[Rfam]
RNA sequence: GGUAGUAGCAAAUAUUCAAGUUCGAUCCUUGAAGACUGAAGUGGAGAAGGGUUCCACGUGAACAGUAGUUGGAUGUGGGUCAGUCGAUCCUAAGGUACUGGCGAACGCCUUGUAUCAUCGGUGGCGAAAAGCUUGCUUUUAGUCCCCGCUUGUCGAAAGGGAAUAGGGUUAAUAUUCCCUAACUGAGAUGCAAAGAUUGUGUUCUUCGGAGCACAAGCGCGGUAACGCAUUCGAACUUGGUUAGUCGCUCAAAGACCGAGCUAGAGUUUUCUUCUCUAGUUAAGGAACGGACUCCCUGGAAUUGGUUCAGCCAGAGAUGGGGACGUUGUUUCCGAAAAGCACCGCGGUUUCUGUGGUGUCUCGUGCUCUUUGAACGGCCCUUAAAACACCAAGGGAGGCUAUUAAUUUGCACUCAAUCGUACCGAUAUCCGCAUUAGGUCUCCAAGGUGAACAGCCUCUAGUCGA
Numbered sequence: 001g002g003u004a005g006u007a008g009c010a011a012a013u014a015u016u017c018a019a020g021u022u023c024g025a026u027c028c029u030u031g032a033a034g035a036c037u038g039a040a041g042u043g044g045a046g047a048a049g050g051g052u053u054c055c056a057c058g059u060g061a062a063c064a065g066u067a068g069u070u071g072g073a074u075g076u077g078g079g080u081c082a083g084u085c086g087a088u089c090c091u092a093a094g095g096u097a098c099u100g101g102c103g104a105a106c107g108c109c110u111u112g113u114a115u116c117a118u119c120g121g122u123g124g125c126g127a128a129a130a131g132c133u134u135g136c137u138u139u140u141a142g143u144c145c146c147c148g149c150u151u152g153u154c155g156a157a158a159g160g161g162a163a164u165a166g167g168g169u170u171a172a173u174a175u176u177c178c179c180u181a182a183c184u185g186a187g188a189u190g191c192a193a194a195g196a197u198u199g200u201g202u203u204c205u206u207c208g209g210a211g212c213a214c215a216a217g218c219g220c221g222g223u224a225a226c227g228c229a230u231u232c233g234a235a236c237u238u239g240g241u242u243a244g245u246c247g248c249u250c251a252a253a254g255a256c257c258g259a260g261c262u263a264g265a266g267u268u269u270u271c272u273u274c275u276c277u278a279g280u281u282a283a284g285g286a287a288c289g290g291a292c293u294c295c296c297u298g299g300a301a302u303u304g305g306u307u308c309a310g311c312c313a314g315a316g317a318u319g320g321g322g323a324c325g326u327u328g329u330u331u332c333c334g335a336a337a338a339g340c341a342c343c344g345c346g347g348u349u350u351c352u353g354u355g356g357u358g359u360c361u362c363g364u365g366c367u368c369u370u371u372g373a374a375c376g377g378c379c380c381u382u383a384a385a386a387c388a389c390c391a392a393g394g395g396a397g398g399c400u401a402u403u404a405a406u407u408u409g410c411a412c413u414c415a416a417u418c419g420u421a422c423c424g425a426u427a428u429c430c431g432c433a434u435u436a437g438g439u440c441u442c443c444a445a446g447g448u449g450a451a452c453a454g455c456c457u458c459u460a461g462u463c464g465a
Stems, first nucleotide, its partner, number of pairs: 015033006034463004043443004049423002054078006063071002085419003089160002094154002096112002100109003120146002164181005184415004189411005198229006236393006244378004249373007257363003260280006284333004293323006302314004340358007429438002445457004
This 465-nucleotide part of an RNA from Caenorhabditis elegans belongs to the Rfam family "Eukaryotic large subunit ribosomal RNA". Rfam's curators put it in the seed alignment. Lineage of the source: Eukaryota > Protostomia > Ecdysozoa > Chromadorea > Caenorhabditis.